[Rfam]
RNA sequence: AGCUCGGUCCCGAAAGGGGCUGGACUUACCGGACAGAAGUCAGCAGAGGUCGUAGUACCGAGGCGGGUAGGCAGUAGGCCGACAAGGACUUGGGAAGGAC
Numbered sequence: 001a002g003c004u005c006g007g008u009c010c011c012g013a014a015a016g017g018g019g020c021u022g023g024a025c026u027u028a029c030c031g032g033a034c035a036g037a038a039g040u041c042a043g044c045a046g047a048g049g050u051c052g053u054a055g056u057a058c059c060g061a062g063g064c065g066g067g068u069a070g071g072c073a074g075u076a077g078g079c080c081g082a083c084a085a086g087g088a089c090u091u092g093g094g095a096a097g098g099a100c
Stems, first nucleotide, its partner, number of pairs: 001027002004023008040047002049100003058093005

Description:
Shown here is a 100-nucleotide RNA sequence from Streptomyces brasiliensis, a member of the family "Group II catalytic intron D1-D4-1". On this family, see Lehmann and Schmidt, Crit Rev Biochem Mol Biol 2003: "Group II introns: structure and catalytic versatility of large natural ribozymes". Gene Ontology term of the family: Group II intron splicing. Rfam's curators write: Group II introns are found in rRNA, tRNA and mRNA of organelles in fungi, plants and protists, and also in mRNA in bacteria.